[Rfam]
RNA sequence: GAACACGAUUUAGAAUUGCAAAGUCAAGUGGAUUUCCGUAAGGAAAUGACUUGGGGAAAUUCCCCGGACACCAAGGUAGAGAGUACCAGCGUUAGCUCGUGGUCCCCUCGCUAUGAAGCCUCUGUGGGCGACGAAGGGUAUCUUUUCGAAGAUAUCUGGAGCUUCUAUGGUGAAUUUGGCGAGAAUGAUUGUCCGAAUAAAAGUUAUGCAAUUGGCUUCAUGAUCCUGGCAGAGUCGUGCUGUCUUCAUGUGUAAGCUAACUCGACGGGGAUUACUCAAAUCGUGUU
Number, nucleotide and partner (000 for none) at each position: 001g000002a287003a286004c285005a284006c283007g282008a281009u280010u279011u278012a000013g000014a213015a212016u211017u210018g209019c208020a000021a000022a000023g000024u054025c053026a052027a051028g050029u049030g000031g000032a047033u046034u045035u044036c043037c042038g000039u000040a000041a000042g037043g036044a035045a034046a033047u032048g000049a029050c028051u027052u026053g025054g024055g000056g000057a000058a273059a272060u271061u000062c270063c269064c268065c267066g000067g000068a000069c000070a000071c000072c000073a000074a000075g087076g086077u085078a084079g000080a000081g000082a000083g000084u078085a077086c076087c075088a000089g100090c099091g098092u000093u000094a000095g000096c000097u000098c091099g090100u089101g000102g186103u185104c000105c000106c000107c000108u182109c181110g180111c179112u178113a177114u000115g000116a000117a175118g000119c000120c172121u000122c000123u000124g000125u000126g164127g163128g162129c161130g000131a000132c000133g000134a000135a000136g000137g000138g000139u000140a000141u000142c000143u000144u000145u000146u000147c000148g000149a000150a157151g156152a000153u000154a000155u000156c151157u150158g000159g000160a000161g129162c128163u127164u126165c000166u000167a000168u000169g000170g000171u000172g120173a000174a000175u117176u000177u113178g112179g111180c110181g109182a108183g000184a000185a103186u102187g000188a000189u000190u000191g000192u000193c000194c000195g000196a000197a000198u000199a000200a000201a000202a000203g000204u000205u000206a000207u000208g019209c018210a017211a016212u015213u014214g000215g257216c256217u255218u254219c000220a000221u000222g000223a000224u000225c000226c000227u000228g000229g000230c000231a000232g000233a000234g000235u000236c000237g000238u000239g000240c000241u000242g000243u000244c000245u000246u000247c000248a000249u000250g000251u000252g000253u000254a218255a217256g216257c215258u000259a000260a000261c000262u000263c000264g000265a000266c000267g065268g064269g063270g062271a060272u059273u058274a000275c000276u000277c000278a011279a010280a009281u008282c007283g006284u005285g004286u003287u002
Source information: This 287-nucleotide sequence from Albugo candida belongs to the Rfam family "RNase MRP". The family's consensus secondary structure is taken from published work. The match comes from Rfam's covariance-model search (104 bits). A reference for the family is Schmitt et al. (1993), "Secondary structure of RNase MRP RNA as predicted by phylogenetic comparison", FASEB J.